The family of this 67-nucleotide sequence is "tRNA".
[Rfam]
RNA sequence: CUGGGGGUAGCUUAAGAUUAAAGUUUGGAAUUCUUACUUCUAAGAUAUCUGGUUUGGAUUCUUCAGG
Numbered sequence: 001c002u003g004g005g006g007g008u009a010g011c012u013u014a015a016g017a018u019u020a021a022a023g024u025u026u027g028g029a030a031u032u033c034u035u036a037c038u039u040c041u042a043a044g045a046u047a048u049c050u051g052g053u054u055u056g057g058a059u060u061c062u063u064c065a066g067g
Stems, first nucleotide, its partner, number of pairs: 001066007010024004026042005047059005

Overview:
The sequence is in the family's curated seed alignment. Rfam links the family to the GO term triplet codon-amino acid adaptor activity.